[Rfam]
RNA sequence: UAGCCGGUGAAAGUCCGGUCGCGGGAGGGGCCAAGACCCCGCGUAGCUUGGAUACUUACGGAUGGCGAAAUCUGUGCGUAAAAGCGUAUCGACGAAAAUUCUGUCAGAGACAGAAUGAGCAACAUACCAGGCCGUAACAUGA
Numbered sequence: 001u002a003g004c005c006g007g008u009g010a011a012a013g014u015c016c017g018g019u020c021g022c023g024g025g026a027g028g029g030g031c032c033a034a035g036a037c038c039c040c041g042c043g044u045a046g047c048u049u050g051g052a053u054a055c056u057u058a059c060g061g062a063u064g065g066c067g068a069a070a071u072c073u074g075u076g077c078g079u080a081a082a083a084g085c086g087u088a089u090c091g092a093c094g095a096a097a098a099u100u101c102u103g104u105c106a107g108a109g110a111c112a113g114a115a116u117g118a119g120c121a122a123c124a125u126a127c128c129a130g131g132c133c134g135u136a137a138c139a140u141g142a
Stems, first nucleotide, its partner, number of pairs: 020043005051090005056081005065072001097116001100114005119135002
RNA: Group II catalytic intron D1-D4-4
Organism: Cohnella faecalis